[Rfam]
RNA sequence: CCGGCAGACGAGACGAUCGCGUCGGCUUAAUCGGCCGCCGAGGAAAGUCCGGGCUCCUGCGGGCAGCGCAGCACCUAACGGGUGUCCGCCGUGGGCGGCAGUUGUCUUCUCCGUCAGGAGAAACGACUGCGGCCGUAAGGCGAGGACUAGUGCCACAGAGACGAUGUAUAGGGACGCAAGUCCGCUAUAGUGAAAAGAGGUAAACUCUGCGCGGAGCAAGAGCAAAUAGAGGACGAGAGCGCCCGCCUCGUGAGCAGUCCCGGGUUGCUUGCUUGAGCCAGUCGGCGACGGCUGGCCUAGAUAAAUGAUCGCCUGAAAAACAGAACCCGGCUUAACGCUCUGCCAUAAUG
Numbered sequence: 001c002c003g004g005c006a007g008a009c010g011a012g013a014c015g016a017u018c019g020c021g022u023c024g025g026c027u028u029a030a031u032c033g034g035c036c037g038c039c040g041a042g043g044a045a046a047g048u049c050c051g052g053g054c055u056c057c058u059g060c061g062g063g064c065a066g067c068g069c070a071g072c073a074c075c076u077a078a079c080g081g082g083u084g085u086c087c088g089c090c091g092u093g094g095g096c097g098g099c100a101g102u103u104g105u106c107u108u109c110u111c112c113g114u115c116a117g118g119a120g121a122a123a124c125g126a127c128u129g130c131g132g133c134c135g136u137a138a139g140g141c142g143a144g145g146a147c148u149a150g151u152g153c154c155a156c157a158g159a160g161a162c163g164a165u166g167u168a169u170a171g172g173g174a175c176g177c178a179a180g181u182c183c184g185c186u187a188u189a190g191u192g193a194a195a196a197g198a199g200g201u202a203a204a205c206u207c208u209g210c211g212c213g214g215a216g217c218a219a220g221a222g223c224a225a226a227u228a229g230a231g232g233a234c235g236a237g238a239g240c241g242c243c244c245g246c247c248u249c250g251u252g253a254g255c256a257g258u259c260c261c262g263g264g265u266u267g268c269u270u271g272c273u274u275g276a277g278c279c280a281g282u283c284g285g286c287g288a289c290g291g292c293u294g295g296c297c298u299a300g301a302u303a304a305a306u307g308a309u310c311g312c313c314u315g316a317a318a319a320a321c322a323g324a325a326c327c328c329g330g331c332u333u334a335a336c337g338c339u340c341u342g343c344c345a346u347a348a349u350g
Stems, first nucleotide, its partner, number of pairs: 003344006012313001014311005020040002023037005045333003049330005054216004061249003066212005071085005086144001087142004145207002150205002152201003167189005172183004220270004231260004240254001242252001244250001277296008

Shown here is a 350-nucleotide RNA sequence from Candidatus Termititenax aidoneus, a member of the family "Bacterial RNase P class A".
It scores 182 bits against the family's covariance model.
Pairs were carried over by alignment from the consensus structure, which is taken from published work.